[Rfam]
RNA sequence: CUGGCGGAACCCGAAAAGCCUACACAGAGUAGGGA
Number, nucleotide and partner (000 for none) at each position: 001c000002u000003g020004g019005c018006g000007g000008a000009a000010c034011c033012c032013g000014a000015a000016a000017a000018g005019c004020c003021u000022a000023c000024a000025c000026a000027g000028a000029g000030u000031a000032g012033g011034g010035a000